A member of the RNA family "MIR845_2 microRNA precursor family" from Vitis vinifera, 129 nucleotides long.
[Rfam]
Nucleotides: 129
Base pairs, nucleotide, nucleotide: 009119011117012116013115014114015113016112022106023105024104025103028100029099030098031097033095046084047083051078052077054075055074059070060069061068
Number, partner (000 for none) and nucleotide at each position: 001000a002000g003000a004000g005000c006000g007000c008000a009119c010000a011117u012116u013115a014114a015113u016112u017000a018000u019000c020000c021000u022106u023105g024104g025103g026000u027000c028100c029099a030098u031097g032000g033095g034000a035000u036000a037000a038000a039000c040000a041000a042000a043000a044000a045000c046084u047083g048000c049000a050000a051078a052077a053000a054075c055074a056000a057000g058000u059070u060069a061068g062000c063000a064000c065000a066000c067000c068061c069060u070059a071000u072000a073000a074055u075054g076000g077052u078051u079000c080000u081000a082000g083047c084046a085000u086000g087000a088000u089000u090000a091000c092000u093000a094000a095033c096000g097031c098030a099029u100028g101000a102000c103025u104024u105023u106022g107000a108000u109000a110000c111000c112016a113015g114014u115013u116012g117011a118000a119009g120000g121000g122000a123000a124000a125000a126000a127000c128000c129000u

Background: The family's consensus secondary structure was predicted with WAR. Rfam 15.1 lists 180 matches to the family in 2 species. Gene Ontology terms of the family: miRNA-mediated post-transcriptional gene silencing and RISC complex. Taxonomically the source falls in Vitis (Eukaryota, eudicotyledons, Vitales, Viteae). The literature on the family includes a 2007 paper in Nature by Jaillon et al., "The grapevine genome sequence suggests ancestral hexaploidization in major angiosperm phyla".